[Rfam]
RNA sequence: GGAAGUAGCAAAUAUUCAAGUGGGAUCCUUGAAGACUGAAGUGGGGAAGGGUUCCAUGGUAACAGCAGUUGGACAUGGGUUAGUCGGUCCUAAGAGAUAGGGAACCUCCGUUUUAAAGAAGGCUCUUGUUAGUCUGACCUAUCGAAAGGGAAUGUAGUUAAGAUUCUACAACUGGGAUGCAGAUUUUCAGCGGUAACGCAUAUGAACUUGGUGACAUUGGCAUGGGCCCUAGGAAAAGUUAUCUUUUUUCUUUAACAGUCUGUAACCCUGGAAACGAAUUAUUCGGAGAUAGGGUUUAAUGAUUGGUAGAGCGUCACACCUCUGUGGCGUCUAGUGUGUCCUUGACAAUCCUUGAAAAGCCGAAGGAUUUAAAAAGUCUUGCACUCAUCCGUACUCAUAUCCGCAUCAGGUCCUCAAGGUGAACAGCCUCUGGUUAA
Numbered sequence: 001g002g003a004a005g006u007a008g009c010a011a012a013u014a015u016u017c018a019a020g021u022g023g024g025a026u027c028c029u030u031g032a033a034g035a036c037u038g039a040a041g042u043g044g045g046g047a048a049g050g051g052u053u054c055c056a057u058g059g060u061a062a063c064a065g066c067a068g069u070u071g072g073a074c075a076u077g078g079g080u081u082a083g084u085c086g087g088u089c090c091u092a093a094g095a096g097a098u099a100g101g102g103a104a105c106c107u108c109c110g111u112u113u114u115a116a117a118g119a120a121g122g123c124u125c126u127u128g129u130u131a132g133u134c135u136g137a138c139c140u141a142u143c144g145a146a147a148g149g150g151a152a153u154g155u156a157g158u159u160a161a162g163a164u165u166c167u168a169c170a171a172c173u174g175g176g177a178u179g180c181a182g183a184u185u186u187u188c189a190g191c192g193g194u195a196a197c198g199c200a201u202a203u204g205a206a207c208u209u210g211g212u213g214a215c216a217u218u219g220g221c222a223u224g225g226g227c228c229c230u231a232g233g234a235a236a237a238g239u240u241a242u243c244u245u246u247u248u249u250c251u252u253u254a255a256c257a258g259u260c261u262g263u264a265a266c267c268c269u270g271g272a273a274a275c276g277a278a279u280u281a282u283u284c285g286g287a288g289a290u291a292g293g294g295u296u297u298a299a300u301g302a303u304u305g306g307u308a309g310a311g312c313g314u315c316a317c318a319c320c321u322c323u324g325u326g327g328c329g330u331c332u333a334g335u336g337u338g339u340c341c342u343u344g345a346c347a348a349u350c351c352u353u354g355a356a357a358a359g360c361c362g363a364a365g366g367a368u369u370u371a372a373a374a375a376g377u378c379u380u381g382c383a384c385u386c387a388u389c390c391g392u393a394c395u396c397a398u399a400u401c402c403g404c405a406u407c408a409g410g411u412c413c414u415c416a417a418g419g420u421g422a423a424c425a426g427c428c429u430c431u432g433g434u435u436a437a
Base pairs, nucleotide, nucleotide: 015033016032017031018030019029020028034435035434036433037432043415044414045413046412049395050394054078055077056076057075058074063071064070085391086390087389089149090148094143095142096112097111098110100109101108102107120135121134153170154169155168156167157166173387174386175385176384178383179382180381181380182379183377184376190199191198192197208363209362210361211360212359216349217348218347219346221344222343224341225340226339227338229334230333231332232252233251235249236248237247256305257304258303259302260301265295266294267293268292269291270290275285276284277283312329313328314327315326316325317324318323401410402409417429418428419427420426